[Rfam]
RNA sequence: GGCCUAAUGGCCCAAUGGCAAGGCGCUUGACUACGAUUCACAUCUGAAAUCAAGAGAUUCCAGGUUCGACCCCUGGUUAGGUCA
Numbered sequence: 001g002g003c004c005u006a007a008u009g010g011c012c013c014a015a016u017g018g019c020a021a022g023g024c025g026c027u028u029g030a031c032u033a034c035g036a037u038u039c040a041c042a043u044c045u046g047a048a049a050u051c052a053a054g055a056g057a058u059u060c061c062a063g064g065u066u067c068g069a070c071c072c073c074u075g076g077u078u079a080g081g082u083c084a
Stems, first nucleotide, its partner, number of pairs: 001083007010024003026054005060076005